RNA sequence: CCAUCAUCACCAUCACCCUGACUAGUCUUUCAGGCGAUAGGUGCUGGAAGACAUUCAGAUCUUCCAGUGGCGGUAGACGCGUAAGAAAAGCCCCCGGAAGAUUGAUUCCGGGGGCUUUUUUUU
Numbered sequence: 001c002c003a004u005c006a007u008c009a010c011c012a013u014c015a016c017c018c019u020g021a022c023u024a025g026u027c028u029u030u031c032a033g034g035c036g037a038u039a040g041g042u043g044c045u046g047g048a049a050g051a052c053a054u055u056c057a058g059a060u061c062u063u064c065c066a067g068u069g070g071c072g073g074u075a076g077a078c079g080c081g082u083a084a085g086a087a088a089a090g091c092c093c094c095c096g097g098a099a100g101a102u103u104g105a106u107u108c109c110g111g112g113g114g115c116u117u118u119u120u121u122u123u
Stems, first nucleotide, its partner, number of pairs: 008043003012038003017034005044067008085120015